[Rfam]
RNA sequence: AGAACUAGAGGACGGAACGGGCAGCCGUCACCGGAUAGCCGCAAGGCUUGAUUAGGAGAUGUGGGAAGCGUCACCCCACCUAAUUCU
Numbered sequence: 001a002g003a004a005c006u007a008g009a010g011g012a013c014g015g016a017a018c019g020g021g022c023a024g025c026c027g028u029c030a031c032c033g034g035a036u037a038g039c040c041g042c043a044a045g046g047c048u049u050g051a052u053u054a055g056g057a058g059a060u061g062u063g064g065g066a067a068g069c070g071u072c073a074c075c076c077c078a079c080c081u082a083a084u085u086c087u
Base pairs, nucleotide, nucleotide: 001087002086003085004084006082007081008080011029012028013027014026015025020072021071022070031056032050033049061079062078063077064076065075

Rfam assigns this 87-nucleotide RNA to the family "skipping-rope RNA".